[Rfam]
RNA sequence: GUCAGAUGAUUUGAAUAGAUACGCUGAUCCUCUGUGAGGUGUGACAAUAGCAUGUUAGAGUUCUGAUGGCA
Numbered sequence: 001g002u003c004a005g006a007u008g009a010u011u012u013g014a015a016u017a018g019a020u021a022c023g024c025u026g027a028u029c030c031u032c033u034g035u036g037a038g039g040u041g042u043g044a045c046a047a048u049a050g051c052a053u054g055u056u057a058g059a060g061u062u063c064u065g066a067u068g069g070c071a
Stems, first nucleotide, its partner, number of pairs: 001070004
Dot-bracket structure: ((((..............................................................)))).
Rfam assigns this 71-nucleotide RNA from Gulo gulo to the family "Small nucleolar RNA SNORD28". The literature on the family includes a 1996 paper in Nature by Tycowski et al., "A mammalian gene with introns instead of exons generating stable RNA products".